[Rfam]
Nucleotides: 205
Base pairs, nucleotide, nucleotide: 013191014190015189016188017187018186019185020184024180025179026178027177028176029175036168058139059138061136062135063134067130068129069128070127075122
Number, partner (000 for none) and nucleotide at each position: 001000a002000a003000g004000u005000u006000g007000a008000a009000a010000g011000u012000a013191g014190a015189g016188c017187u018186c019185c020184u021000u022000u023000a024180a025179g026178u027177u028176c029175a030000a031000a032000c033000g034000a035000g036168a037000g038000u039000u040000u041000a042000g043000u044000a045000g046000g047000g048000u049000a050000a051000a052000g053000a054000a055000a056000a057000g058139c059138u060000g061136c062135u063134a064000a065000g066000c067130u068129a069128u070127g071000g072000a073000u074000c075122c076000c077000a078000u079000a080000a081000g082000c083000c084000c085000u086000a087000a088000u089000c090000c091000u092000u093000a094000u095000a096000g097000a098000g099000a100000g101000a102000a103000a104000a105000a106000a107000g108000g109000a110000u111000u112000u113000g114000g115000u116000u117000a118000u119000a120000u121000g122075g123000c124000u125000u126000g127070c128069a129068u130067a131000u132000c133000u134063u135062a136061g137000g138059a139058g140000c141000u142000u143000u144000a145000a146000c147000u148000u149000g150000c151000c152000c153000u154000u155000u156000a157000a158000u159000u160000g161000c162000u163000u164000u165000u166000a167000c168036u169000c170000u171000u172000c173000u174000u175029u176028g177027g178026a179025u180024u181000g182000a183000a184020g185019g186018g187017a188016g189015c190014u191013c192000u193000a194000c195000a196000u197000c198000u199000u200000c201000a202000u203000u204000c205000u
The family of this 205-nucleotide sequence from Brassica napus is "MIR159 microRNA precursor family". Taxonomically the source falls in Brassica (Eukaryota, Gunneridae, Pentapetalae, Brassicaceae). A search with the family's covariance model found it, with a score of 107 bits.